[Rfam]
This 105-nucleotide RNA sequence from Dendrosporobacter quercicolus belongs to the Rfam family "pan motif".

RNA sequence: AGGAUGAUAUCAUUCGAGUCAUACCGAAAUGAGAGUUUACCGGCAAACUACGACAAUAGAAUACCCUCGUUGCCGCUUAGAUCCGCUGCGGACUGAGACGGAAGG
Numbered sequence: 001a002g003g004a005u006g007a008u009a010u011c012a013u014u015c016g017a018g019u020c021a022u023a024c025c026g027a028a029a030u031g032a033g034a035g036u037u038u039a040c041c042g043g044c045a046a047a048c049u050a051c052g053a054c055a056a057u058a059g060a061a062u063a064c065c066c067u068c069g070u071u072g073c074c075g076c077u078u079a080g081a082u083c084c085g086c087u088g089c090g091g092a093c094u095g096a097g098a099c100g101g102a103a104g105g
Base pairs, nucleotide, nucleotide: 002025003024004022005021006020007019008018010017011016073101074100075099076097077096078095079094080093082092083091084090

The family's RNA type in Rfam is cis-regulatory element. The base pairs follow the family's consensus structure, which is taken from published work.